A member of the RNA family "Nuclear RNase P" from Holothuria leucospilota, 296 nucleotides long.

RNA sequence: GGUGGCAUGCUCACUGGUCAGGUCACACACAGGUACUAGGUUACCUUACCUGCCCUGCGGGAAGGUCUGAGAGAAGAGCUGUGGCACUUCCAAAUGUUGUACCUCUGAAGAGGGGUGUGUAGUACAAGAAAAGUAGCCCAUGUGGGUACAUAAUGACUGAUGAUGGUCACACAUGUGUGAUCAGAGGUCCUUGUCCCCAGUACAUUGGUUGGUAUGCUACUAGCUAGCCAUUGCAAGUUAGAUUGGUGUGAUAAGUCAAUGUAGACUUACAACUCAAUUCAGACUACACUGCCACC
Number, nucleotide and partner (000 for none) at each position: 001g296002g295003u000004g000005g292006c291007a290008u000009g000010c250011u000012c248013a247014c246015u245016g244017g000018u000019c057020a056021g055022g054023u000024c000025a000026c000027a000028c000029a000030c000031a046032g045033g044034u043035a042036c040037u000038a000039g000040g036041u000042u035043a034044c033045c032046u031047u000048a000049c000050c000051u000052g000053c000054c022055c021056u020057g019058c000059g000060g000061g000062a000063a000064g000065g000066u000067c282068u281069g280070a279071g278072a000073g000074a000075a000076g000077a225078g224079c223080u222081g000082u000083g000084g000085c000086a100087c099088u000089u000090c096091c000092a000093a000094a000095u000096g090097u000098u000099g087100u086101a116102c115103c114104u113105c112106u111107g000108a000109a000110g000111a106112g105113g104114g103115g102116u101117g000118u000119g220120u219121a218122g217123u216124a000125c000126a000127a000128g000129a000130a000131a000132a000133g000134u000135a000136g000137c208138c207139c000140a000141u000142g000143u000144g000145g000146g000147u000148a000149c000150a000151u000152a000153a000154u000155g000156a000157c000158u000159g000160a000161u000162g000163a000164u000165g000166g000167u000168c000169a000170c000171a000172c000173a000174u000175g000176u000177g000178u000179g000180a000181u000182c000183a000184g000185a000186g000187g000188u000189c000190c000191u000192u000193g000194u000195c000196c000197c000198c000199a000200g000201u000202a000203c000204a000205u000206u000207g138208g137209u000210u000211g000212g000213u000214a000215u000216g123217c122218u121219a120220c119221u000222a080223g079224c078225u077226a000227g000228c000229c000230a000231u000232u000233g000234c000235a000236a000237g000238u000239u000240a000241g000242a000243u000244u016245g015246g014247u013248g012249u000250g010251a000252u269253a268254a267255g266256u265257c264258a000259a000260u000261g000262u000263a000264g257265a256266c255267u254268u253269a252270c000271a000272a000273c000274u000275c000276a000277a000278u071279u070280c069281a068282g067283a000284c000285u000286a000287c000288a000289c000290u007291g006292c005293c000294a000295c002296c001
It scores 119 bits against the family's covariance model. Gene Ontology terms of the family: tRNA processing, ribonuclease P activity and ribonuclease P complex. The base pairs follow the family's consensus structure, which is taken from published work. By type it is a ribozyme.